[Rfam]
RNA sequence: GGUCUUGAGUCCCAGCCACAGGCCCCGGCCGGCUGGGCGGCAACCCUCCUUCCGCGGUGGGGGUGCCCCGGGUGACGACCAGGCGGGCCGCUGCGGUGGCGGUUCGCAAGCGCGGACC
Numbered sequence: 001g002g003u004c005u006u007g008a009g010u011c012c013c014a015g016c017c018a019c020a021g022g023c024c025c026c027g028g029c030c031g032g033c034u035g036g037g038c039g040g041c042a043a044c045c046c047u048c049c050u051u052c053c054g055c056g057g058u059g060g061g062g063g064u065g066c067c068c069c070g071g072g073u074g075a076c077g078a079c080c081a082g083g084c085g086g087g088c089c090g091c092u093g094c095g096g097u098g099g100c101g102g103u104u105c106g107c108a109a110g111c112g113c114g115g116a117c118c
Stems, first nucleotide, its partner, number of pairs: 001080004009038001011037006021030002039067003044063003048057002083107010

The record is a 118-nucleotide RNA sequence from Nakamurella flava, which matches "SAM (S-adenosyl methionine) riboswitch aptamer" in Rfam.
The base pairs follow the family's consensus structure, which is taken from published work.
Gene Ontology terms of the family: S-adenosylmethionine metabolic process and regulation of gene expression.
The organism belongs to Nakamurella, within Bacteria.
SAM-IV is a mRNA element that regulates gene expression via direct sensing of S-adenosylmethionine (SAM or AdoMet). SAM-IV riboswitches share conserved nucleotide positions with the previously described SAM-I riboswitches sequence analysis and molecular recognition experiments suggest that SAM-I and SAM-IV riboswitches share similar ligand binding sites, but have different scaffolds.